[Rfam]
RNA sequence: UUUAAUUGCAUCCAUAAGUUUUCGCGCCCAACUUUGAUCGUCCGUCUUAUUUGAAUUUUUUAUAAUUAGUAUUAUAGUGGUUAUGUGAUGAUAAAAUAUGAAUAGUACUUUACUCGUGACUAAUGUUUUUAAUUGUUUUUUAAAAAAACGUCAAAUAAGAUAGACGGUCAAAAUUAGGUGCGGAAAACUAUGGCUGCAUUUAAA
Numbered sequence: 001u002u003u004a005a006u007u008g009c010a011u012c013c014a015u016a017a018g019u020u021u022u023c024g025c026g027c028c029c030a031a032c033u034u035u036g037a038u039c040g041u042c043c044g045u046c047u048u049a050u051u052u053g054a055a056u057u058u059u060u061u062a063u064a065a066u067u068a069g070u071a072u073u074a075u076a077g078u079g080g081u082u083a084u085g086u087g088a089u090g091a092u093a094a095a096a097u098a099u100g101a102a103u104a105g106u107a108c109u110u111u112a113c114u115c116g117u118g119a120c121u122a123a124u125g126u127u128u129u130u131a132a133u134u135g136u137u138u139u140u141u142a143a144a145a146a147a148a149c150g151u152c153a154a155a156u157a158a159g160a161u162a163g164a165c166g167g168u169c170a171a172a173a174u175u176a177g178g179u180g181c182g183g184a185a186a187a188c189u190a191u192g193g194c195u196g197c198a199u200u201u202a203a204a
Stems, first nucleotide, its partner, number of pairs: 027178002030175002033172010044161007